This 215-nucleotide RNA sequence from Fervidicola ferrireducens belongs to the Rfam family "HNH endonuclease-associated RNA and ORF (HEARO) RNA".
RNA sequence: CUGUAGAGGCGGUGGCUUGCAAAAGCCAUAGUUGACCAGCCUAAGGAACUGACUCGAAGGACAAGGGGAUGAUGUUCCUACGUUAUCCCUGUCAGGGCACUCUGGGGUGCGUCCCAAGCUCCAGACACUGCCGUGCAGGCUUAAACAGUCUUGAGUGGUAGGGACAGUGGUCUGCACACAGCAAGCAGGGAUAACAUUGGCGAUGGGAGAUGCAG
Numbered sequence: 001c002u003g004u005a006g007a008g009g010c011g012g013u014g015g016c017u018u019g020c021a022a023a024a025g026c027c028a029u030a031g032u033u034g035a036c037c038a039g040c041c042u043a044a045g046g047a048a049c050u051g052a053c054u055c056g057a058a059g060g061a062c063a064a065g066g067g068g069a070u071g072a073u074g075u076u077c078c079u080a081c082g083u084u085a086u087c088c089c090u091g092u093c094a095g096g097g098c099a100c101u102c103u104g105g106g107g108u109g110c111g112u113c114c115c116a117a118g119c120u121c122c123a124g125a126c127a128c129u130g131c132c133g134u135g136c137a138g139g140c141u142u143a144a145a146c147a148g149u150c151u152u153g154a155g156u157g158g159u160a161g162g163g164a165c166a167g168u169g170g171u172c173u174g175c176a177c178a179c180a181g182c183a184a185g186c187a188g189g190g191a192u193a194a195c196a197u198u199g200g201c202g203a204u205g206g207g208a209g210a211u212g213c214a215g
Base pairs, nucleotide, nucleotide: 001006016025017024018023039201040200041199043197044079045078046077047076048075082195083194084193085192086191087190088189089188090187091186092185097131098130101125102124103123104122105121106120107119108118109211112208113207114206115205116204133177134176135175136174137173138172139171140170141169145168146167148165149164150163151162152161154159
The family has 139 seed sequences and 952 matches in Rfam 15.1.